[Rfam]
RNA sequence: UCUAUCGUGAGGCAGAGCCCUAGACAAAGCACCGAAUUGAUGUACAAAAAGUGGCUAAAGAGCUGAAAACGGAGGGAUGAGAUUGCGUAACAAUUUGAAAUUCUCAACCACUCGAAACCGUAACAGUAAAGCCAAGGGUUGGAUGCGAAAGCUACUGUU
Numbered sequence: 001u002c003u004a005u006c007g008u009g010a011g012g013c014a015g016a017g018c019c020c021u022a023g024a025c026a027a028a029g030c031a032c033c034g035a036a037u038u039g040a041u042g043u044a045c046a047a048a049a050a051g052u053g054g055c056u057a058a059a060g061a062g063c064u065g066a067a068a069a070c071g072g073a074g075g076g077a078u079g080a081g082a083u084u085g086c087g088u089a090a091c092a093a094u095u096u097g098a099a100a101u102u103c104u105c106a107a108c109c110a111c112u113c114g115a116a117a118c119c120g121u122a123a124c125a126g127u128a129a130a131g132c133c134a135a136g137g138g139u140u141g142g143a144u145g146c147g148a149a150a151g152c153u154a155c156u157g158u159u
Stems, first nucleotide, its partner, number of pairs: 001016003005012002017159001019157001025151001029146003033142001035140004052134005062127003068121001070120003075103004081096002084093001

Background:
A member of the RNA family "Group II catalytic intron D1-D4-3" from Ligilactobacillus pobuzihii, 159 nucleotides long. From the family's description: Group II introns are found in rRNA, tRNA and mRNA of organelles in fungi, plants and protists, and also in mRNA in bacteria. The literature on the family includes a 2003 paper in Crit Rev Biochem Mol Biol by Lehmann and Schmidt, "Group II introns: structure and catalytic versatility of large natural ribozymes". Taxonomically the source falls in Ligilactobacillus (Bacteria, Bacillati, Bacillota, Bacilli). The base pairs follow the family's consensus structure. Its family is annotated with Group II intron splicing in the Gene Ontology.